[Rfam]
RNA sequence: GGAUUCUUAGCUCAGCUGGUUAGAGCACUCGGCUCAUAACCGAUUGGUCGUAGGUUCAAGUCCUACAGAAUCCA
Number, nucleotide and partner (000 for none) at each position: 001g073002g072003a071004u070005u069006c068007u067008u000009a000010g026011c025012u024013c023014a000015g000016c000017u000018g000019g000020u000021u000022a000023g013024a012025g011026c010027a000028c000029u043030c042031g041032g040033c000034u000035c000036a000037u000038a000039a000040c032041c031042g030043a029044u000045u000046g000047g000048u000049c000050g066051u065052a064053g063054g062055u000056u000057c000058a000059a000060g000061u000062c054063c053064u052065a051066c050067a007068g006069a005070a004071u003072c002073c001074a000
tRNA: a 74-nucleotide sequence from Helicobacter felis. Taxonomically the source falls in Helicobacter felis (Bacteria, Pseudomonadati, Campylobacterota, Campylobacterales). The family's consensus secondary structure is taken from published work. A reference for the family is Hou (1993), "The tertiary structure of tRNA and the development of the genetic code", Trends Biochem Sci. Transfer RNA (tRNA) molecules are approximately 80 nucleotides in length. Rfam classes the family as a transfer RNA.